[Rfam]
Nucleotides: 136
Stems, first nucleotide, its partner, number of pairs: 003135004008130001010128004015123003019119003023115003026111006035103001
Number, partner (000 for none) and nucleotide at each position: 001000g002000a003135u004134g005133g006132a007000g008130a009000a010128u011127u012126c013125c014000u015123a016122a017121g018000a019119g020118a021117u022000c023115g024114c025113a026111u027110g028109a029108u030107c031106c032000g033000a034000u035103g036000a037000a038000c039000a040000g041000a042000c043000c044000a045000a046000a047000u048000g049000a050000a051000c052000c053000a054000a055000a056000a057000a058000a059000a060000a061000a062000g063000a064000a065000g066000a067000a068000g069000c070000a071000u072000a073000a074000u075000g076000a077000a078000u079000c080000a081000a082000u083000c084000c085000a086000u087000u088000a089000a090000a091000a092000u093000u094000c095000a096000a097000u098000u099000g100000a101000u102000a103035u104000u105000u106031g107030g108029a109028u110027c111026a112000a113025u114024g115023c116000g117021a118020u119019c120000c121017c122016u123015u124000u125013g126012g127011a128010a129000c130008u131000c132006u133005c134004c135003a136000c

Overview
mir-393 microRNA precursor family: a 136-nucleotide RNA sequence from Nyssa sinensis. Rfam links the family to the GO terms miRNA-mediated post-transcriptional gene silencing and RISC complex. The base pairs follow the family's consensus structure. Rfam 15.1 lists 1,052 matches to the family in 221 species. For this family Rfam cites "Role of microRNAs and other sRNAs of plants in their changing environments" (Kruszka et al., J Plant Physiol, 2012). NCBI's taxonomy places the organism under Eukaryota, Spermatophyta, eudicotyledons, asterids, Nyssa. It scores 62 bits against the family's covariance model.